[Rfam]
Rfam assigns this 121-nucleotide RNA sequence from Enterococcus mundtii to the family "Enterococcus sRNA 1C".
Rfam's curators put it in the seed alignment.
By type it is a small RNA.
Taxonomically the source falls in Enterococcus mundtii (Bacteria, Bacilli, Lactobacillales, Enterococcus).
The literature on the family includes a 2011 paper in Nucleic Acids Res by Fouquier d'Herouel et al., "A simple and efficient method to search for selected primary transcripts: non-coding and antisense RNAs in the human pathogen Enterococcus faecalis".
RNA sequence: UAAUGAGUGAACUUUAUUCAUUACAACCAUAUACAUGUUGAGCUAUCUGGCGGAAAACAGAUGGCUCAUUAUUUCAAUAUUCUGCUAAGGACAGCCAGUGGUCGGCUGUCUUUUUUAUAUU
Numbered sequence: 001u002a003a004u005g006a007g008u009g010a011a012c013u014u015u016a017u018u019c020a021u022u023a024c025a026a027c028c029a030u031a032u033a034c035a036u037g038u039u040g041a042g043c044u045a046u047c048u049g050g051c052g053g054a055a056a057a058c059a060g061a062u063g064g065c066u067c068a069u070u071a072u073u074u075c076a077a078u079a080u081u082c083u084g085c086u087a088a089g090g091a092c093a094g095c096c097a098g099u100g101g102u103c104g105g106c107u108g109u110c111u112u113u114u115u116u117a118u119a120u121u
Stems, first nucleotide, its partner, number of pairs: 003030003007024004040067010084115001087113010
Dot-bracket structure: ..(((.((((..........))))...))).........((((((((((........))))))))))................(..((((((((((.......)))))))))).)......